[Rfam]
The family of this 107-nucleotide RNA from Gorilla gorilla is "Y RNA".
About the family: Y RNAs are components of the Ro ribonucleoprotein particle (Ro RNP), in association with Ro60 and La proteins.
The family's consensus secondary structure is taken from published work.
On this family, see Van Horn et al., RNA 1995: "Caenorhabditis elegans embryos contain only one major species of Ro RNP".
RNA sequence: GGCUGGUCUGAAGGUAGUCAGUUAUCUCAAUUGUUCACAGUCAGUUACAGAUAGAACCCUUGUUCUACUCUUUCCCCCUUCUCACUACUGCAGUUAACUAGCCUUGA
Numbered sequence: 001g002g003c004u005g006g007u008c009u010g011a012a013g014g015u016a017g018u019c020a021g022u023u024a025u026c027u028c029a030a031u032u033g034u035u036c037a038c039a040g041u042c043a044g045u046u047a048c049a050g051a052u053a054g055a056a057c058c059c060u061u062g063u064u065c066u067a068c069u070c071u072u073u074c075c076c077c078c079u080u081c082u083c084a085c086u087a088c089u090g091c092a093g094u095u096a097a098c099u100a101g102c103c104u105u106g107a
Stems, first nucleotide, its partner, number of pairs: 001103007010095002014091002016086003020082002039069003043066002